[Rfam]
The record is a 329-nucleotide RNA sequence from Diceros bicornis, which matches "7SK RNA" in Rfam.
RNA sequence: GGAUGUGAGAGCGAUCUGGCUGUGACAUCUGUCACCUCAUUGAUCGCCAGGGUUGAUUUGGCUGAUCUGGCUGGCUAGGCGGGUGUCCCCUUCUUGCCUCACCACUCCAUGUGCAUCCCUCUGGAAGCUGCAUGCUUGGUCGAAGAGGAGGCCCUUCCCGGAUAAAGGAAGACCAUUCUUCAGUCAAGGGUAUAAGAGUAGCUACGCUCCUCUGCUAGAACCUUCAAACAAGCUCUCAAGGUCCAUUUGCAGGAGAACUUAGGGAGUCAAGCUUCCAAGACUCCAAACACGUCCAAAUGAGGCCUGCAGGUGGCAGUCUGCCUUUCUUU
Number, nucleotide and partner (000 for none) at each position: 001g108002g107003a106004u000005g102006u101007g100008a099009g098010a000011g000012c000013g093014a092015u000016c000017u000018g090019g089020c000021u000022g000023u000024g087025a086026c085027a084028u083029c082030u081031g080032u079033c078034a000035c074036c073037u070038c069039a068040u000041u000042g067043a066044u065045c064046g062047c061048c060049a000050g000051g000052g000053u000054u000055g000056a000057u000058u000059u000060g048061g047062c046063u000064g045065a044066u043067c042068u039069g038070g037071c000072u000073g036074g035075c000076u000077a000078g033079g032080c031081g030082g029083g028084u027085g026086u025087c024088c000089c019090c018091u000092u014093c013094u000095u000096g000097c000098c009099u008100c007101a006102c005103c000104a000105c000106u003107c002108c001109a000110u000111g000112u000113g000114c000115a000116u171117c000118c168119c167120u166121c000122u139123g000124g137125a136126a000127g135128c134129u000130g000131c000132a000133u000134g128135c127136u125137u124138g000139g122140u162141c161142g000143a000144a000145g000146a000147g158148g157149a156150g000151g000152c000153c000154c000155u000156u149157c148158c147159c000160g000161g141162a140163u000164a000165a000166a120167g119168g118169a000170a000171g116172a000173c000174c000175a000176u000177u000178c000179u000180u000181c000182a000183g000184u000185c000186a000187a000188g000189g000190g000191u000192a000193u000194a000195a000196g000197a000198g000199u000200a000201g272202c271203u270204a000205c000206g000207c266208u265209c000210c264211u263212c262213u261214g260215c000216u000217a000218g000219a000220a000221c000222c255223u254224u253225c252226a000227a000228a000229c249230a248231a247232g246233c000234u000235c000236u000237c000238a000239a000240g000241g000242u000243c000244c000245a000246u232247u231248u230249g229250c000251a000252g225253g224254a223255g222256a000257a000258c000259u000260u214261a213262g212263g211264g210265a208266g207267u000268c000269a000270a203271g202272c201273u000274u000275c000276c000277a000278a000279g000280a000281c000282u000283c000284c000285a000286a000287a000288c000289a000290c000291g000292u000293c000294c000295a329296a328297a327298u000299g324300a323301g322302g321303c320304c316305u315306g314307c313308a000309g000310g000311u000312g000313g307314c306315a305316g304317u000318c000319u000320g303321c302322c301323u300324u299325u000326c000327u297328u296329u295
It is annotated as a non-coding RNA gene. Its Rfam clan is "7SK clan". The match comes from Rfam's covariance-model search (307 bits). Pairs were carried over by alignment from the consensus structure, which is taken from published work. About the family: 7SK was discovered as an abundant small nuclear RNA in the mid-70s but a possible function has only recently been suggested. Two independent studies have found that 7SK RNA binds the CDK9/cyclin T complex (known as elongation factor P-TEFb). P-TEFb activates transcription by phosphorylating the C-terminal domain of RNA polymerase II. This process is negatively regulated by the 7SK RNP. The secondary structure of 7SK RNA shown here was proposed by Wasserman and Steitz on the basis of chemical modification and enzymatic cleavage experiments. This family contains a number of annotated pseudogenes and 7SK derived repeats. For this family Rfam cites "Transcription: surprising role for an elusive small nuclear RNA" (Blencowe, Curr Biol, 2002).